The record is a 79-nucleotide RNA sequence from Xenopus tropicalis, which matches "Small nucleolar RNA SNORD71" in Rfam. About the family: snoRNA HBII-239 belongs to the family of C/D snoRNAs.It is the human orthologue of the mouse MBII-239 described and is predicted to guide 2'O-ribose methylation of 5.8S rRNA on residue U14. The family's RNA type in Rfam is H/ACA-box small nucleolar RNA. It scores 34 bits against the family's covariance model. Gene Ontology terms of the family: RNA processing and nucleolus. On this family, see Huttenhofer et al., EMBO J 2001: "RNomics: an experimental approach that identifies 201 candidates for novel, small, non-messenger RNAs in mouse". The source organism's lineage runs through Eukaryota, Opisthokonta, Craniata, Tetrapoda and Silurana.
RNA sequence: UGUUUGUUGUGUGAUGAUUAUUAAGUGAUCCAUCGGCAGAGACUUACCGUGCUGAGAUCCUAAAACCUGACAACAACCA
Numbered sequence: 001u002g003u004u005u006g007u008u009g010u011g012u013g014a015u016g017a018u019u020a021u022u023a024a025g026u027g028a029u030c031c032a033u034c035g036g037c038a039g040a041g042a043c044u045u046a047c048c049g050u051g052c053u054g055a056g057a058u059c060c061u062a063a064a065a066c067c068u069g070a071c072a073a074c075a076a077c078c079a
Stems, first nucleotide, its partner, number of pairs: 002078001004076005009068001013030003017026001033055005041047001